[Rfam]
RNA sequence: AUACUUACCUGGAUGGGGUCAAUGGGCGAUCACAAAGGCUCAUGGCCUAGAUUAGUGACCUCCAUUGCACUUAGGAGGGGCGCUUGUCUAAGAUCUACCCAAGUGGUGGAGUCUACAUCAUAAUUUGUGUUAGGGGUGGCUUGCGUUCGCGCAGCCCCCAC
Numbered sequence: 001a002u003a004c005u006u007a008c009c010u011g012g013a014u015g016g017g018g019u020c021a022a023u024g025g026g027c028g029a030u031c032a033c034a035a036a037g038g039c040u041c042a043u044g045g046c047c048u049a050g051a052u053u054a055g056u057g058a059c060c061u062c063c064a065u066u067g068c069a070c071u072u073a074g075g076a077g078g079g080g081c082g083c084u085u086g087u088c089u090a091a092g093a094u095c096u097a098c099c100c101a102a103g104u105g106g107u108g109g110a111g112u113c114u115a116c117a118u119c120a121u122a123a124u125u126u127g128u129g130u131u132a133g134g135g136g137u138g139g140c141u142u143g144c145g146u147u148c149g150c151g152c153a154g155c156c157c158c159c160a161c
Base pairs, nucleotide, nucleotide: 012119013118014117015116016048017047018046019045020044021043023042024041025040026039027038049089050088051087053086055083056082057081059079060078061077062075063074091114092113093112094110095109096108098106099105135159136158138156142153143152144151145150
Rfam assigns this 161-nucleotide RNA from Apium graveolens to the family "U1 spliceosomal RNA". From the family's description: U1 is a small nuclear RNA (snRNA) component of the spliceosome (involved in pre-mRNA splicing). The organism belongs to Apium, within Eukaryota.